[Rfam]
RNA sequence: GAGAUUUCUGGAACAGUGCUUUCAAAAUUUG
Number, nucleotide and partner (000 for none) at each position: 001g000002a030003g029004a028005u027006u026007u025008c000009u024010g023011g022012a021013a020014c018015a000016g000017u000018g014019c000020u013021u012022u011023c010024a009025a007026a006027a005028u004029u003030u002031g000
RNA: Iron response element II